Rfam assigns this 97-nucleotide sequence from Mariniphaga sediminis to the family "TPP riboswitch aptamer (THI element)". Vitamin B(1) in its active form thiamin pyrophosphate (TPP) is an essential coenzyme that is synthesised by coupling of pyrimidine and thiazole moieties in bacteria.
RNA sequence: UCUGAUAGCACGGGGUGCCCACUCAAAAGUAAGGCUGAGAUUACACCCGUUACCUGAUUUGGAUAAUGCCAACGUAGGGAUGCGGUAUACAAUAUUC
Numbered sequence: 001u002c003u004g005a006u007a008g009c010a011c012g013g014g015g016u017g018c019c020c021a022c023u024c025a026a027a028a029g030u031a032a033g034g035c036u037g038a039g040a041u042u043a044c045a046c047c048c049g050u051u052a053c054c055u056g057a058u059u060u061g062g063a064u065a066a067u068g069c070c071a072a073c074g075u076a077g078g079g080a081u082g083c084g085g086u087a088u089a090c091a092a093u094a095u096u097c
Stems, first nucleotide, its partner, number of pairs: 006085001008083003011049004016043001017035003053078004059072004
Dot-bracket structure: .....(.(((((((.((((.............))).......)..))))...((((..((((......))))..))))..))).)............

The base pairs follow the family's consensus structure, which is taken from published work.